[Rfam]
Nucleotides: 075
Stems, first nucleotide, its partner, number of pairs: 003072002011036002016031006034061001040067003044064003047059003
Number, partner (000 for none) and nucleotide at each position: 001000c002000g003072c004071g005000a006000u007000a008000a009000a010000g011036g012035c013000a014000a015000a016031g017030c018029c019028g020027u021026c022000g023000c024000a025000a026021g027020g028019c029018g030017g031016u032000g033000a034061c035012g036011c037000a038000a039000a040067g041066c042065c043000a044064c045063g046062g047059g048058a049057c050000c051000c052000c053000c054000a055000g056000g057049g058048u059047c060000a061034g062046c063045c064044g065042g066041g067040c068000c069000a070000c071004c072003g073000a074000a075000c
Rfam assigns this 75-nucleotide sequence from Deinococcus ficus to the family "c-di-GMP-I-GGC riboswitch aptamer". Its Rfam clan is "c-di-GMP_I riboswitch clan". The source organism's lineage runs through Bacteria, Thermotogati, Deinococci, Deinococcaceae and Deinococcus.